This 109-nucleotide RNA sequence from Nakamurella alba belongs to the Rfam family "TPP riboswitch aptamer (THI element)". NCBI's taxonomy places the organism under Bacteria, Actinomycetota, Nakamurellales, Nakamurellaceae, Nakamurella. It scores 61 bits against the family's covariance model.
RNA sequence: GCGACCGACACGGGAGUCCGGUGCGCCGGGCUGAGAGAGGGACACGAAGUCCCUGACCGUCGAACCUGAUCCGGGUCAUGCCGGCGAAGGAACGUCGCUCUCUUCGAUC
Number, nucleotide and partner (000 for none) at each position: 001g000002c000003g000004a000005c000006c097007g096008a095009c094010a000011c059012g058013g057014g000015a054016g031017u030018c029019c028020g027021g000022u000023g000024c000025g000026c000027c020028g019029g018030g017031c016032u000033g000034a000035g000036a000037g000038a000039g053040g052041g051042a050043c000044a000045c000046g000047a000048a000049g000050u042051c041052c040053c039054u015055g000056a000057c013058c012059g011060u000061c000062g000063a000064a000065c090066c089067u088068g000069a000070u000071c084072c083073g082074g081075g000076u000077c000078a000079u000080g000081c074082c073083g072084g071085c000086g000087a000088a067089g066090g065091a000092a000093c000094g009095u008096c007097g006098c000099u000100c000101u000102c000103u000104u000105c000106g000107a000108u000109c000